The record is a 79-nucleotide sequence from Candidatus Electronema aureum, which matches "c-di-GMP-I-UAU riboswitch aptamer" in Rfam.
The source organism's lineage runs through Bacteria, Thermodesulfobacteriota, Desulfobulbales, Desulfobulbaceae and Candidatus Electronema.
Its Rfam clan is "c-di-GMP_I riboswitch clan".
Gene Ontology term of the family: cyclic-di-GMP binding.
RNA sequence: UUGAGAAAAGCCACAGCCGUCGCGAGGCGGUGUCGGAAAGCCACGGGUCUCCAUUUUGGAGACAGCCGGGUUGCCUGCU
Numbered sequence: 001u002u003g004a005g006a007a008a009a010g011c012c013a014c015a016g017c018c019g020u021c022g023c024g025a026g027g028c029g030g031u032g033u034c035g036g037a038a039a040g041c042c043a044c045g046g047g048u049c050u051c052c053a054u055u056u057u058g059g060a061g062a063c064a065g066c067c068g069g070g071u072u073g074c075c076u077g078c079u
Stems, first nucleotide, its partner, number of pairs: 011036002016031006039072004044068003047063007